[Rfam]
RNA sequence: AACCCUUUUAAAUCCAGUCCUGUGAGGCUGAAAAGGGGGGACCAUGCCGGAUAGUAACUUUUUUUGGCAAUUUAAAACCCUCUUUGUACACUCAUAGACAAAGAGGGUUUUUUUUG
Numbered sequence: 001a002a003c004c005c006u007u008u009u010a011a012a013u014c015c016a017g018u019c020c021u022g023u024g025a026g027g028c029u030g031a032a033a034a035g036g037g038g039g040g041a042c043c044a045u046g047c048c049g050g051a052u053a054g055u056a057a058c059u060u061u062u063u064u065u066g067g068c069a070a071u072u073u074a075a076a077a078c079c080c081u082c083u084u085u086g087u088a089c090a091c092u093c094a095u096a097g098a099c100a101a102a103g104a105g106g107g108u109u110u111u112u113u114u115u116g
Stems, first nucleotide, its partner, number of pairs: 003037006015030005041073001045069007053061002074111014